[Rfam]
RNA sequence: AGUCUGUCCUGACGCUCGGCUGCUAGUCGAACGUACAGAGAAGACACCAGAGGAAACACUCCCACGCCACCUUGUAUACAAGCUGCAAGGCUCGAUGGCGGAAAGGAGGAAAAUUAACCUGG
Numbered sequence: 001a002g003u004c005u006g007u008c009c010u011g012a013c014g015c016u017c018g019g020c021u022g023c024u025a026g027u028c029g030a031a032c033g034u035a036c037a038g039a040g041a042a043g044a045c046a047c048c049a050g051a052g053g054a055a056a057c058a059c060u061c062c063c064a065c066g067c068c069a070c071c072u073u074g075u076a077u078a079c080a081a082g083c084u085g086c087a088a089g090g091c092u093c094g095a096u097g098g099c100g101g102a103a104a105g106g107a108g109g110a111a112a113a114u115u116a117a118c119c120u121g122g
Base pairs, nucleotide, nucleotide: 002045003044004043009038010037011036012034013033014032016030017029018028019027047122048121049120050119059108060107061106062105
This 122-nucleotide RNA belongs to the Rfam family "Hairpin ribozyme 1 from viruses-like metatranscriptomes".
The family's consensus secondary structure is taken from published work.
The literature on the family includes a 2021 paper in Nucleic Acids Res by Weinberg et al., "Identification of over 200-fold more hairpin ribozymes than previously known in diverse circular RNAs".